Background:
Small nucleolar RNA SNORA8: a 137-nucleotide sequence from Sparus aurata. About the family: ACA8 is a member of the H/ACA class of snoRNA that guide the sites of modification of uridines to pseudouridines.
RNA sequence: GGCACUGUGUGGUAUCUGCAGCCAGUUGCUCAUCAGCUGGUUUGUUCAAAAGUCAGUGCUAGACAAACUCAACAUUGGCACCGUUGGUCUCCAAUGCUGCCUGUGCCUGGAGUCCUGGUAUAUUUGUUGAAACACAU
Numbered sequence: 001g002g003c004a005c006u007g008u009g010u011g012g013u014a015u016c017u018g019c020a021g022c023c024a025g026u027u028g029c030u031c032a033u034c035a036g037c038u039g040g041u042u043u044g045u046u047c048a049a050a051a052g053u054c055a056g057u058g059c060u061a062g063a064c065a066a067a068c069u070c071a072a073c074a075u076u077g078g079c080a081c082c083g084u085u086g087g088u089c090u091c092c093a094a095u096g097c098u099g100c101c102u103g104u105g106c107c108u109g110g111a112g113u114c115c116u117g118g119u120a121u122a123u124u125u126g127u128u129g130a131a132a133c134a135c136a137u
Base pairs, nucleotide, nucleotide: 002059003058004057005056006055007054014053015052017050018045019044020043021042023040024038025037026036027035028034063125065123067121069118070117071116077107078106079105080104081103
Dot-bracket structure: .((((((......((.(((((.((((((.....))))).).))))....).))))))))...(.(.(.(((.....(((((.....................)))))........)))..).).)............

The family's RNA type in Rfam is H/ACA-box small nucleolar RNA. It scores 54 bits against the family's covariance model. Gene Ontology terms of the family: RNA processing and nucleolus.